This 105-nucleotide sequence belongs to the Rfam family "TPP riboswitch aptamer (THI element)".
RNA sequence: UGGUAGCACCAGGGGUGCUUGUCCGUCUCAGGGACAGGCUGAGAGAGUCCCUUUGCACCUGUGAACAGGUUAAUACCUGCGUAGGGAGCGUGCUGCUUGUGCUGU
Numbered sequence: 001u002g003g004u005a006g007c008a009c010c011a012g013g014g015g016u017g018c019u020u021g022u023c024c025g026u027c028u029c030a031g032g033g034a035c036a037g038g039c040u041g042a043g044a045g046a047g048u049c050c051c052u053u054u055g056c057a058c059c060u061g062u063g064a065a066c067a068g069g070u071u072a073a074u075a076c077c078u079g080c081g082u083a084g085g086g087a088g089c090g091u092g093c094u095g096c097u098u099g100u101g102c103u104g105u
Base pairs, nucleotide, nucleotide: 006093007092008091009090011052012051013050014049016046017039018038019037020036021035022034023033024032058085059084060083061082066079067078068077069076

Annotation:
It scores 58 bits against the family's covariance model.